[Rfam]
RNA sequence: UGCAUGCCUCCACGUGGCGUUAUGUCACCCAAUCCCCCCAGGGCAGGAAUGCAGCAAGGGUAAGUGGCCUCUGACGGGUGCGUGGGGGUUUACUCUU
Numbered sequence: 001u002g003c004a005u006g007c008c009u010c011c012a013c014g015u016g017g018c019g020u021u022a023u024g025u026c027a028c029c030c031a032a033u034c035c036c037c038c039c040a041g042g043g044c045a046g047g048a049a050u051g052c053a054g055c056a057a058g059g060g061u062a063a064g065u066g067g068c069c070u071c072u073g074a075c076g077g078g079u080g081c082g083u084g085g086g087g088g089u090u091u092a093c094u095c096u097u
Stems, first nucleotide, its partner, number of pairs: 004091001006089009015078001018076005024068005035060003043052003

The record is a 97-nucleotide RNA sequence from Bifidobacterium mongoliense, which matches "Bacterial small signal recognition particle RNA" in Rfam. Pairs were carried over by alignment from the consensus structure, which is taken from published work. The family is grouped with related families in Rfam's "SRP clan". Rfam's curators write: The signal recognition particle (SRP) is a universally conserved ribonucleoprotein involved in the co-translational targeting of proteins to membranes. A search with the family's covariance model found it, with a score of 60 bits.